[Rfam]
c-di-AMP riboswitch aptamer (ydaO/yuaA leader): a 191-nucleotide sequence from Streptomyces sp. BA2. Pairs were carried over by alignment from the consensus structure. The source organism's lineage runs through Bacteria, Bacillati, Actinomycetes, Streptomycetaceae and Streptomyces. Gene Ontology terms of the family: regulation of gene expression and cyclic-di-AMP binding. A reference for the family is Barrick et al. (2004), "New RNA motifs suggest an expanded scope for riboswitches in bacterial genetic control", Proc Natl Acad Sci U S A.
RNA sequence: UCGCGUAAUGCGCCGUAGGCAGGAGCGGGGGAACCAAGGUUUCCGCCGGGCCCGGCCGUUCAGCAUCGCGAGAGCGAGGCGGAGAGCGGACGGGAACGGCUAGGGGUUAAGUCGCGCUCAGGAAGCGCGGCCGGGCAACUUCAUCGGCCCGAACCCGACAGCUCACCUCGCAGGCGUCGGUGAGGGGAUCA
Number, nucleotide and partner (000 for none) at each position: 001u000002c176003g175004c174005g000006u000007a000008a000009u024010g000011c022012g000013c000014c000015g000016u000017a000018g000019g000020c000021a000022g011023g000024a009025g171026c170027g169028g168029g167030g166031g000032a000033a000034c000035c103036a000037a000038g000039g000040u000041u000042u000043c000044c000045g000046c000047c000048g000049g000050g000051c000052c000053c000054g000055g000056c000057c000058g000059u000060u000061c000062a000063g000064c000065a000066u000067c000068g000069c000070g000071a000072g000073a000074g000075c000076g000077a000078g000079g000080c000081g000082g000083a000084g000085a000086g000087c000088g000089g000090a000091c000092g000093g000094g000095a000096a000097c000098g000099g000100c000101u000102a000103g035104g156105g155106g154107u000108u000109a000110a000111g000112u130113c129114g128115c127116g000117c000118u000119c000120a000121g000122g000123a000124a000125g000126c000127g115128c114129g113130g112131c000132c000133g150134g149135g148136c147137a000138a000139c000140u000141u000142c000143a000144u000145c000146g000147g136148c135149c134150c133151g000152a000153a000154c106155c105156c104157g000158a000159c000160a000161g000162c000163u000164c000165a000166c030167c029168u028169c027170g026171c025172a000173g000174g004175c003176g002177u000178c000179g000180g000181u000182g000183a000184g000185g000186g000187g000188a000189u000190c000191a000